The record is an 80-nucleotide sequence from Alligator sinensis, which matches "Mammalian CPEB3 ribozyme" in Rfam. Rfam links the family to the GO term RNA nuclease activity. The mammalian CPEB3 ribozyme is a self cleaving RNA located in the second intron of the CPEB3 gene which belongs to a family of genes regulating messenger RNA polyadenylation. This ribozyme is highly conserved and found only in mammals. The CPEB3 ribozyme is structurally and biochemically related to the human hepatitis delta virus (HDV) ribozyme and the HDV ribozyme is proposed to have arisen from the human transcriptome. Taxonomically the source falls in Alligator (Eukaryota, Dipnotetrapodomorpha, Archosauria, Alligatorinae).
RNA sequence: AGAGCCUGCAAGCUUGAGGCCAUAGCAGAAGCGCUCAUGGCAUGGCCCUGUCAGAUUCCAACAAAUCUGUGAAUUUUGCU
Numbered sequence: 001a002g003a004g005c006c007u008g009c010a011a012g013c014u015u016g017a018g019g020c021c022a023u024a025g026c027a028g029a030a031g032c033g034c035u036c037a038u039g040g041c042a043u044g045g046c047c048c049u050g051u052c053a054g055a056u057u058c059c060a061a062c063a064a065a066u067c068u069g070u071g072a073a074u075u076u077u078g079c080u
Base pairs, nucleotide, nucleotide: 016048018047019046020045021044024080025079026078027077028076029075030074031043033041052069053068054067055066056065057064